[Rfam]
Nucleotides: 106
Base pairs, nucleotide, nucleotide: 004047005046006045007041008040009039010038011037012036024090025089026088027079028078034104
Number, partner (000 for none) and nucleotide at each position: 001000c002000u003000a004047c005046u006045g007041c008040a009039c010038c011037c012036u013000u014000u015000u016000u017000u018000g019000c020000g021000c022000a023000a024090c025089c026088u027079g028078g029000u030000u031000u032000g033000c034104u035000u036012g037011g038010g039009g040008u041007g042000a043000g044000u045006c046005a047004g048000g049000u050000a051000g052000c053000u054000g055000u056000c057000a058000g059000a060000c061000g062000g063000a064000g065000u066000a067000a068000a069000u070000u071000u072000g073000g074000a075000u076000g077000g078028c079027c080000c081000g082000u083000a084000u085000u086000g087000c088026a089025g090024g091000c092000g093000u094000c095000a096000a097000c098000a099000u100000c101000c102000c103000g104034g105000a106000u

Description:
This 106-nucleotide RNA from Halopseudomonas phragmitis belongs to the Rfam family "Alpha operon ribosome binding site". Rfam links the family to the GO term ribosome binding. A reference for the family is Schlax et al. (2001), "Translational repression of the Escherichia coli alpha operon mRNA: importance of an mRNA conformational switch and a ternary entrapment complex", J Biol Chem. It is annotated as a cis-regulatory element. About the family: The bacterial alpha operon ribosome binding site is surrounded by this complex pseudoknotted structure. The organism belongs to Halopseudomonas, within Bacteria.